[Rfam]
RNA sequence: GACUUCGUCCGCGACUGGCGCAGCUUGAGGUGGAACCGACCACCGGGGAGCAACCAUCGUCGGUGCAUCGCGCGCCUGGGUGCCCGAU
Numbered sequence: 001g002a003c004u005u006c007g008u009c010c011g012c013g014a015c016u017g018g019c020g021c022a023g024c025u026u027g028a029g030g031u032g033g034a035a036c037c038g039a040c041c042a043c044c045g046g047g048g049a050g051c052a053a054c055c056a057u058c059g060u061c062g063g064u065g066c067a068u069c070g071c072g073c074g075c076c077u078g079g080g081u082g083c084c085c086g087a088u
Base pairs, nucleotide, nucleotide: 003059007055011051012050015047016046017076018075019074020073021072030043031042032041033040065083066082067081068080069079

Rfam assigns this 88-nucleotide sequence from Virgisporangium ochraceum to the family "ZMP/ZTP riboswitch aptamer (pfl RNA motif)". The organism belongs to Virgisporangium, within Bacteria. Gene Ontology terms of the family: regulation of purine nucleotide biosynthetic process and one-carbon metabolic process. The base pairs follow the family's consensus structure, which is taken from published work.